Overview:
Rfam assigns this 86-nucleotide RNA sequence to the family "Enterobacterial sRNA STnc230". It is annotated as a small RNA. Rfam's curators put it in the seed alignment. The family's consensus secondary structure was predicted with WAR.
RNA sequence: UUUUUAGCAUCAGAUCCCGUCGACGAUAAAAAAGUGCAUUGACAAUAACAAAAGUCUCCCACCCCGGGGAGACUUUUUGAGCGGUU
Numbered sequence: 001u002u003u004u005u006a007g008c009a010u011c012a013g014a015u016c017c018c019g020u021c022g023a024c025g026a027u028a029a030a031a032a033a034g035u036g037c038a039u040u041g042a043c044a045a046u047a048a049c050a051a052a053a054g055u056c057u058c059c060c061a062c063c064c065c066g067g068g069g070a071g072a073c074u075u076u077u078u079g080a081g082c083g084g085u086u
Stems, first nucleotide, its partner, number of pairs: 049079005054073007